[Rfam]
RNA sequence: AUGAAAAUUAUUGGAGAUAUCAAUCAUUGAUAACCGUAGGAGAAAGAUAUAAGCAAUGCUAAAUGUUUAUAUCGAAGCUUUCAGGUCACAUACAAUAAUUUGACA
Numbered sequence: 001a002u003g004a005a006a007a008u009u010a011u012u013g014g015a016g017a018u019a020u021c022a023a024u025c026a027u028u029g030a031u032a033a034c035c036g037u038a039g040g041a042g043a044a045a046g047a048u049a050u051a052a053g054c055a056a057u058g059c060u061a062a063a064u065g066u067u068u069a070u071a072u073c074g075a076a077g078c079u080u081u082c083a084g085g086u087c088a089c090a091u092a093c094a095a096u097a098a099u100u101u102g103a104c105a
Base pairs, nucleotide, nucleotide: 006100007099008098009097010096011095012094013093019031020030021029022028033086034085035084036082040080041079042078046073047072048071049070050069051068052067053066054065055064

Rfam assigns this 105-nucleotide RNA from Clostridium sp. BL8 to the family "Glycine riboswitch aptamer". Its family is annotated with glycine biosynthetic process in the Gene Ontology. Taxonomically the source falls in Clostridium (Bacteria, Bacillati, Clostridia, Clostridiaceae).